[Rfam]
RNA sequence: UUUUACAAUGUAAAAAUGCUUGCUAUUUUUCCAUUUAUACGAUAUAAUUACAUAGCUAACAGAAUAAAAGUACUGGUGCGUGGCAAUCCGUUGGGACUUGUGCAAUGGGAACCUAUGAACCUCGUCAGGUCCGAGAGGAAGCAGCGAUAAGUAGUCAUUUCCAUGUGCCAUGAGGCAACCUGACGGGUUGUCAUACACGAGUACUUUUCAGUUGGUCAAA
Numbered sequence: 001u002u003u004u005a006c007a008a009u010g011u012a013a014a015a016a017u018g019c020u021u022g023c024u025a026u027u028u029u030u031c032c033a034u035u036u037a038u039a040c041g042a043u044a045u046a047a048u049u050a051c052a053u054a055g056c057u058a059a060c061a062g063a064a065u066a067a068a069a070g071u072a073c074u075g076g077u078g079c080g081u082g083g084c085a086a087u088c089c090g091u092u093g094g095g096a097c098u099u100g101u102g103c104a105a106u107g108g109g110a111a112c113c114u115a116u117g118a119a120c121c122u123c124g125u126c127a128g129g130u131c132c133g134a135g136a137g138g139a140a141g142c143a144g145c146g147a148u149a150a151g152u153a154g155u156c157a158u159u160u161c162c163a164u165g166u167g168c169c170a171u172g173a174g175g176c177a178a179c180c181u182g183a184c185g186g187g188u189u190g191u192c193a194u195a196c197a198c199g200a201g202u203a204c205u206u207u208u209c210a211g212u213u214g215g216u217c218a219a220a
Base pairs, nucleotide, nucleotide: 001220002219003218005216006215008053009052010051011050012030013029014028015027016026017025018024033049035047036046058213059212060211062209063208064207068206069205070204071203072202073201076198077197078196080194081193082192083191084190088186089185090184091183092182093181094180095179097174098173099172100171101170102169103165104164106163107162108161109160110159113154114153115152116151122147123146124145125144130139131138132137